[Rfam]
RNA: Guanidine-I riboswitch aptamer
Organism: Caldibacillus thermoamylovorans
Nucleotides: 101
Stems, first nucleotide, its partner, number of pairs: 007055006015045002020042002022039001023036005057074007076096001078099001082094003
Number, partner (000 for none) and nucleotide at each position: 001000a002000a003000a004000a005000u006000u007055g008054u009053u010052u011051u012050c013000u014000a015045g016044g017000g018000u019000u020042c021041c022039g023036c024035a025034a026033u027032g028000a029000u030000u031000a032027u033026g034025u035024u036023g037000g038000u039022c040000c041021g042020g043000u044016c045015c046000g047000a048000g049000a050012g051011a052010a053009a054008a055007c056000u057074c058073a059072c060071a061070g062069u063068u064000c065000u066000a067000u068063a069062g070061c071060u072059g073058u074057g075000c076096c077000a078099c079000g080000g081000a082094g083093g084092g085000a086000u087000a088000a089000a090000a091000g092084c093083c094082c095000g096076g097000g098000a099078g100000a101000a